This 97-nucleotide RNA sequence from Stakelama tenebrarum belongs to the Rfam family "Glycine riboswitch aptamer". The match comes from Rfam's covariance-model search (63 bits).

RNA sequence: UAGGUGCAUGCGGGAGAGUGUGACGGCGUAAAGGCCGGCACCGCCGAAGGAGCAACCGCCCCGGAAUCUCUCAGGCAAACGGGACCGCGUGCGCACG
Numbered sequence: 001u002a003g004g005u006g007c008a009u010g011c012g013g014g015a016g017a018g019u020g021u022g023a024c025g026g027c028g029u030a031a032a033g034g035c036c037g038g039c040a041c042c043g044c045c046g047a048a049g050g051a052g053c054a055a056c057c058g059c060c061c062c063g064g065a066a067u068c069u070c071u072c073a074g075g076c077a078a079a080c081g082g083g084a085c086c087g088c089g090u091g092c093g094c095a096c097g
Base pairs, nucleotide, nucleotide: 006092007091008090009089010088011087012086013085020041021040022039043076044075045074046072047071050070051069052068056064057063